Rfam assigns this 190-nucleotide RNA from Arabidopsis lyrata to the family "Early nodulin 40".

RNA sequence: AUGAAACCGGCAGAAAAAAUGCAGACAAAGCCAUUCAAGGAGGAGGCAGAGGAACCUCAGUUUGAUAAAUCUCCCUAACAGUUUGUUUAGCUUGGCCAUGAGAAGCGAGGAGACAAAAGAAACUUGGGUUUAUGGGAAUGGCAAAACGGCAAGUCAUAUAUCGGCAUCAGGCUCGUGUUUUCCGAGUUCU
Numbered sequence: 001a002u003g004a005a006a007c008c009g010g011c012a013g014a015a016a017a018a019a020u021g022c023a024g025a026c027a028a029a030g031c032c033a034u035u036c037a038a039g040g041a042g043g044a045g046g047c048a049g050a051g052g053a054a055c056c057u058c059a060g061u062u063u064g065a066u067a068a069a070u071c072u073c074c075c076u077a078a079c080a081g082u083u084u085g086u087u088u089a090g091c092u093u094g095g096c097c098a099u100g101a102g103a104a105g106c107g108a109g110g111a112g113a114c115a116a117a118a119g120a121a122a123c124u125u126g127g128g129u130u131u132a133u134g135g136g137a138a139u140g141g142c143a144a145a146a147c148g149g150c151a152a153g154u155c156a157u158a159u160a161u162c163g164g165c166a167u168c169a170g171g172c173u174c175g176u177g178u179u180u181u182c183c184g185a186g187u188u189c190u
Stems, first nucleotide, its partner, number of pairs: 035067001082145005097134003170188005
Gene Ontology term of the family: nodulation.